Plastid-rpl16 group II-D1 intron: a 50-nucleotide RNA from Corchorus olitorius.
Pairs were carried over by alignment from the consensus structure, which was predicted with LocARNA.
Taxonomically the source falls in Corchorus (Eukaryota, Mesangiospermae, Pentapetalae, rosids).
Rfam's curators write: Plastid-rpl16 is a non-coding RNA (ncRNA) recognised in plastids. It was recognised in and intronic region of a ribosome rpl16 gene.
A search with the family's covariance model found it, with a score of 44 bits.
[Rfam]
RNA sequence: AAGAGCCUUAAUAAGUCAAUAAAAACUGAAAAUAUUGACUCAAGAAUUAA
Numbered sequence: 001a002a003g004a005g006c007c008u009u010a011a012u013a014a015g016u017c018a019a020u021a022a023a024a025a026c027u028g029a030a031a032a033u034a035u036u037g038a039c040u041c042a043a044g045a046a047u048u049a050a
Stems, first nucleotide, its partner, number of pairs: 007044002014040007